This 259-nucleotide RNA from Candidatus Thiodictyon syntrophicum belongs to the Rfam family "Group II catalytic intron D1-D4-6".
The family has 174 seed sequences and 1,617 matches in Rfam 15.1.
Gene Ontology term of the family: Group II intron splicing.
[Rfam]
RNA sequence: AAAGUCCCGGUCGGGUAAGGGUUAGCCGCCCGCCCGUAUCGAGUGUUGGUCCCGUUGCGGAGUAGGGUAACCUGCGAACAACAGACGGGGCAAGCGUACACAGAGAAUCCUGUAGGCCGCAGGGGAGGUCGCGCUCCCUGAAGUGCUGGUACAGCUUCGAAAUGGCUUGUUGCGGAUGUCGACAGUCUUAACUUGCUGGAAGACAACACGAAGCGCCCGCAAUGGCUUGGGCGUGGAGGUCCGCCGGAGUCCUCAGGCC
Numbered sequence: 001a002a003a004g005u006c007c008c009g010g011u012c013g014g015g016u017a018a019g020g021g022u023u024a025g026c027c028g029c030c031c032g033c034c035c036g037u038a039u040c041g042a043g044u045g046u047u048g049g050u051c052c053c054g055u056u057g058c059g060g061a062g063u064a065g066g067g068u069a070a071c072c073u074g075c076g077a078a079c080a081a082c083a084g085a086c087g088g089g090g091c092a093a094g095c096g097u098a099c100a101c102a103g104a105g106a107a108u109c110c111u112g113u114a115g116g117c118c119g120c121a122g123g124g125g126a127g128g129u130c131g132c133g134c135u136c137c138c139u140g141a142a143g144u145g146c147u148g149g150u151a152c153a154g155c156u157u158c159g160a161a162a163u164g165g166c167u168u169g170u171u172g173c174g175g176a177u178g179u180c181g182a183c184a185g186u187c188u189u190a191a192c193u194u195g196c197u198g199g200a201a202g203a204c205a206a207c208a209c210g211a212a213g214c215g216c217c218c219g220c221a222a223u224g225g226c227u228u229g230g231g232c233g234u235g236g237a238g239g240u241c242c243g244c245c246g247g248a249g250u251c252c253u254c255a256g257g258c259c
Base pairs, nucleotide, nucleotide: 012036013035014034015033019031020030021029022028024227025226026225039104040103043101044100045099046098047096048095049091050090051089052088053087054086055085056084154250155249156248157247158246159245172244173243174242175241176240177239178204179203180202183198184197185196186195209238213234214233215232216231217230218229